About this RNA
The record is a 62-nucleotide sequence from Mangrovibacter sp. MFB070, which matches "Pseudomonas sRNA P26" in Rfam. By type it is a non-coding RNA gene. The organism belongs to Mangrovibacter, within Bacteria. A search with the family's covariance model found it, with a score of 59 bits.
RNA sequence: CUUUUUCUGGUAACAGCCUGAGAAAUCAGGCUGCUGGCUGGUGAUUUUAUAGUCACCAGCCU
Numbered sequence: 001c002u003u004u005u006u007c008u009g010g011u012a013a014c015a016g017c018c019u020g021a022g023a024a025a026u027c028a029g030g031c032u033g034c035u036g037g038c039u040g041g042u043g044a045u046u047u048u049a050u051a052g053u054c055a056c057c058a059g060c061c062u
Stems, first nucleotide, its partner, number of pairs: 014033005022027001036061010